A member of the RNA family "MIR480 microRNA precursor family" from Populus tomentosa, 101 nucleotides long. Pairs were carried over by alignment from the consensus structure, which was predicted with WAR. Gene Ontology terms of the family: miRNA-mediated post-transcriptional gene silencing and RISC complex. A reference for the family is Lu et al. (2005), "Novel and mechanical stress-responsive MicroRNAs in Populus trichocarpa that are absent from Arabidopsis", Plant Cell. Rfam 15.1 lists 3,070 matches to the family in 171 species.
[Rfam]
RNA sequence: UAAUCUGUUUAUAACAUAUUUUAUCUAGUUAUGACAAACUCACAUGUGACUACUUAGAAUUACCUGUAAGAACUAAUAUGUGAAUAAUAAUUUUUUAAGAU
Numbered sequence: 001u002a003a004u005c006u007g008u009u010u011a012u013a014a015c016a017u018a019u020u021u022u023a024u025c026u027a028g029u030u031a032u033g034a035c036a037a038a039c040u041c042a043c044a045u046g047u048g049a050c051u052a053c054u055u056a057g058a059a060u061u062a063c064c065u066g067u068a069a070g071a072a073c074u075a076a077u078a079u080g081u082g083a084a085u086a087a088u089a090a091u092u093u094u095u096u097a098a099g100a101u
Base pairs, nucleotide, nucleotide: 004099006097007096012090014088019083022080023079024078026075027074028073029072030071